[Rfam]
Source information
This 146-nucleotide RNA from Breznakiella homolactica belongs to the Rfam family "FMN riboswitch aptamer (RFN element)". The family's consensus secondary structure is taken from published work. Gene Ontology term of the family: FMN binding. NCBI's taxonomy places the organism under Bacteria, Pseudomonadati, Spirochaetota, Breznakiellaceae, Breznakiella. Rfam describes the family as follows. The RFN element is a highly conserved domain that is found frequently in the 5'-untranslated regions of prokaryotic mRNAs that encode for flavin mononucleotide (FMN) biosynthesis and transport proteins. This element is a metabolite-dependent riboswitch that directly binds FMN in the absence of proteins. In Bacillus subtilis, the riboswitch most likely controls gene expression by causing premature transcription termination within the 5' untranslated region of the ribDEAHT operon and precluding access to the ribosome-binding site of ypaA mRNA.The FMN riboswitch structure, reported in present an FMN-bound six-stem junction, adopts a butterfly-like scaffold, stapled together by opposingly directed but nearly identically folded peripheral domains.

RNA sequence: AACAAUUUUCAGGGUAGGGUAAUGCGCCGCGUUGCGCCGCAGAUCCCAACCGGCGGUAUAGCCCGCGACUCCGUGAGUUUUGACUCACAGACUGAACCGGUGAAAUUCCGGUGCCGACGGUAUAGUCCGGAUGGAAGAAAGUUGAA
Numbered sequence: 001a002a003c004a005a006u007u008u009u010c011a012g013g014g015u016a017g018g019g020u021a022a023u024g025c026g027c028c029g030c031g032u033u034g035c036g037c038c039g040c041a042g043a044u045c046c047c048a049a050c051c052g053g054c055g056g057u058a059u060a061g062c063c064c065g066c067g068a069c070u071c072c073g074u075g076a077g078u079u080u081u082g083a084c085u086c087a088c089a090g091a092c093u094g095a096a097c098c099g100g101u102g103a104a105a106u107u108c109c110g111g112u113g114c115c116g117a118c119g120g121u122a123u124a125g126u127c128c129g130g131a132u133g134g135a136a137g138a139a140a141g142u143u144g145a146a
Stems, first nucleotide, its partner, number of pairs: 003144008017047003049126002051116002053066004061114002070091002096112005118129003